[Rfam]
RNA sequence: UAUGUAUAUCAUGAGAAGGAUUUAUUUCCUCUCCAACCUGCCAACUCCGGCAAGGUGGAAAAAAGAUAUGGCGUUCGGCAAAUAAAGGAGGAAAG
Numbered sequence: 001u002a003u004g005u006a007u008a009u010c011a012u013g014a015g016a017a018g019g020a021u022u023u024a025u026u027u028c029c030u031c032u033c034c035a036a037c038c039u040g041c042c043a044a045c046u047c048c049g050g051c052a053a054g055g056u057g058g059a060a061a062a063a064a065g066a067u068a069u070g071g072c073g074u075u076c077g078g079c080a081a082a083u084a085a086a087g088g089a090g091g092a093a094a095g
Stems, first nucleotide, its partner, number of pairs: 006069005015031001017030004032059003037055003040051003045090004071079002

A member of the RNA family "SAM-I/IV (S-adenosyl methionine) riboswitch aptamer", 95 nucleotides long. The family has 417 seed sequences and 567 matches in Rfam 15.1.